RNA sequence: CUUCGCUGGUGGCGUACUUCCCAAUCAAGGGUCGAGUAAUCACGCAUACCUGUCAUCUGACACUGCAGAUUCCCUAGGCCCGCUCAUUACAGCGGGCUUUUUUAU
Numbered sequence: 001c002u003u004c005g006c007u008g009g010u011g012g013c014g015u016a017c018u019u020c021c022c023a024a025u026c027a028a029g030g031g032u033c034g035a036g037u038a039a040u041c042a043c044g045c046a047u048a049c050c051u052g053u054c055a056u057c058u059g060a061c062a063c064u065g066c067a068g069a070u071u072c073c074c075u076a077g078g079c080c081c082g083c084u085c086a087u088u089a090c091a092g093c094g095g096g097c098u099u100u101u102u103u104a105u
Stems, first nucleotide, its partner, number of pairs: 009043004014037002017034001020031003077098007

A member of the RNA family "Tryptophan operon leader" from Serratia fonticola, 105 nucleotides long.
The family's consensus secondary structure is taken from published work.
At least 6 amino acid operons are known to be regulated by attenuation. In each a leader sequence of 150-200 bp is found upstream of the first gene in the operon. This leader sequence can assume two different secondary structures known as the terminator and the anti-terminator structure. In each case the leader also codes for very short peptide sequence that is rich in the end product amino acid of the operon.
Taxonomically the source falls in Serratia (Bacteria, Pseudomonadota, Gammaproteobacteria, Yersiniaceae).
It is annotated as a cis-regulatory leader.